[Rfam]
RNA sequence: CCUUAAAGUACUCUAGCAGCACAUCAUGGUUUGCAUGCUCUAGCAAAAAUGCGAAUCAUUAUUUGCUGCUUUGGAAAUUUAAGG
Numbered sequence: 001c002c003u004u005a006a007a008g009u010a011c012u013c014u015a016g017c018a019g020c021a022c023a024u025c026a027u028g029g030u031u032u033g034c035a036u037g038c039u040c041u042a043g044c045a046a047a048a049a050u051g052c053g054a055a056u057c058a059u060u061a062u063u064u065g066c067u068g069c070u071u072u073g074g075a076a077a078u079u080u081a082a083g084g
Base pairs, nucleotide, nucleotide: 001084002083003082004081005080006079015070016069017068018067019066020065021064023062024061026059027058028057029056030055031054032053033052034051035050036049
RNA: mir-15 microRNA precursor family
Organism: Gopherus evgoodei